[Rfam]
Nucleotides: 086
Base pairs, nucleotide, nucleotide: 001084002083003082004081009076010075011074012073013072014071017068018067019066020065021064025059026058028056032053033052035050037048
Number, partner (000 for none) and nucleotide at each position: 001084u002083u003082g004081a005000a006000u007000a008000a009076u010075u011074u012073g013072a014071a015000g016000a017068c018067u019066u020065c021064a022000a023000c024000u025059u026058g027000c028056a029000a030000a031000c032053u033052u034000a035050a036000a037048g038000a039000a040000u041000u042000u043000g044000a045000a046000g047000a048037c049000c050035u051000c052033a053032a054000c055000u056028u057000c058026c059025a060000g061000a062000c063000u064021u065020g066019a067018a068017g069000a070000a071014u072013u073012u074011g075010a076009a077000g078000a079000c080000c081004u082003c083002a084001a085000c086000u

Notes
The record is an 86-nucleotide sequence from Solanum commersonii, which matches "MIR8024 microRNA precursor family" in Rfam. NCBI's taxonomy places the organism under Eukaryota, asterids, Solanaceae, Solanoideae, Solanum. The base pairs follow the family's consensus structure, which was predicted with RNAalifold. The match comes from Rfam's covariance-model search (71 bits). Gene Ontology terms of the family: miRNA-mediated post-transcriptional gene silencing and RISC complex.